This 46-nucleotide RNA sequence from Verrucomicrobia bacterium LW23 belongs to the Rfam family "Acido-Lenti-1 RNA". The base pairs follow the family's consensus structure, which is taken from published work.
RNA sequence: CCCAGGGCUCACGCCCUGGGCGAUAGGCUUUCGCGCCUACGGCGCU
Numbered sequence: 001c002c003c004a005g006g007g008c009u010c011a012c013g014c015c016c017u018g019g020g021c022g023a024u025a026g027g028c029u030u031u032c033g034c035g036c037c038u039a040c041g042g043c044g045c046u
Base pairs, nucleotide, nucleotide: 001020002019003018004017005016006015007014008013033045034044035043036042037041